Overview:
The record is a 154-nucleotide sequence from Pseudactinobacillus ducreyi, which matches "CpoB/ybgF ICR thermometer" in Rfam. It is annotated as an RNA thermoregulator.
RNA sequence: CCAAGUUUCAACCGUUUCUUACGGUGAAGAAAAACCUUCUGUAUUAGGACAUACAGAAGCUGAUUAUGCGAAAAAUCGCCGUGCAGUAUUAGAGUACUAAUUUAUAUAUUUUAAUAAUAUUAAAAGCCCUGUAUUUUCAGGGCUUUAUUUUUAU
Numbered sequence: 001c002c003a004a005g006u007u008u009c010a011a012c013c014g015u016u017u018c019u020u021a022c023g024g025u026g027a028a029g030a031a032a033a034a035c036c037u038u039c040u041g042u043a044u045u046a047g048g049a050c051a052u053a054c055a056g057a058a059g060c061u062g063a064u065u066a067u068g069c070g071a072a073a074a075a076u077c078g079c080c081g082u083g084c085a086g087u088a089u090u091a092g093a094g095u096a097c098u099a100a101u102u103u104a105u106a107u108a109u110u111u112u113a114a115u116a117a118u119a120u121u122a123a124a125a126g127c128c129c130u131g132u133a134u135u136u137u138c139a140g141g142g143c144u145u146u147a148u149u150u151u152u153a154u
Stems, first nucleotide, its partner, number of pairs: 001047001003045002007041001014035004019030002055152001057150003062145002065141001067139002075132002078129001080126001082124001086120005
Background
From the family's description: Imprinting control region from upstream of cpoB/ybgF (tol/pal system protein). A search with the family's covariance model found it, with a score of 53 bits. Its family is annotated with response to temperature stimulus and regulation of translation in the Gene Ontology. Pairs were carried over by alignment from the consensus structure. On this family, see Righetti et al., Proc Natl Acad Sci U S A 2016: "Temperature-responsive in vitro RNA structurome of Yersinia pseudotuberculosis".